[Rfam]
RNA sequence: GGGAACGCCCGGCCCCGCUGUAGAGGGACCAUCAGCGACCGGGCCAGAAAGAAUAAGGUCCCAC
Numbered sequence: 001g002g003g004a005a006c007g008c009c010c011g012g013c014c015c016c017g018c019u020g021u022a023g024a025g026g027g028a029c030c031a032u033c034a035g036c037g038a039c040c041g042g043g044c045c046a047g048a049a050a051g052a053a054u055a056a057g058g059u060c061c062c063a064c
Base pairs, nucleotide, nucleotide: 011045012044013043014042015041016037017036018035019034020033025062026061027060028059029058030057032055

Description
Shown here is a 64-nucleotide sequence from Loxodonta africana, a member of the family "Edr gene ribosomal frameshift signal". Its family is annotated with translational frameshifting in the Gene Ontology. Rfam classes the family as a frameshift element. On this family, see Manktelow et al., Nucleic Acids Res 2005: "Characterization of the frameshift signal of Edr, a mammalian example of programmed -1 ribosomal frameshifting".